Shown here is a 102-nucleotide sequence from Paenisporosarcina cavernae, a member of the family "Purine riboswitch aptamer". Taxonomically the source falls in Paenisporosarcina (Bacteria, Bacillati, Bacillota, Caryophanales).

RNA sequence: AAAAGAAUUUAAUACUAUCGUCGUAUAAUGUCGGGAAUAUGGCCCGAAAGUUUCUACCGAGUUACCGUAAAUGACUCGACUACGAUUUUUGGAAUGUCUUUU
Numbered sequence: 001a002a003a004a005g006a007a008u009u010u011a012a013u014a015c016u017a018u019c020g021u022c023g024u025a026u027a028a029u030g031u032c033g034g035g036a037a038u039a040u041g042g043c044c045c046g047a048a049a050g051u052u053u054c055u056a057c058c059g060a061g062u063u064a065c066c067g068u069a070a071a072u073g074a075c076u077c078g079a080c081u082a083c084g085a086u087u088u089u090u091g092g093a094a095u096g097u098c099u100u101u102u
Base pairs, nucleotide, nucleotide: 020086021085022084023083024082025081029049031047032046033045034044035043058078059077060076061075062074063073064072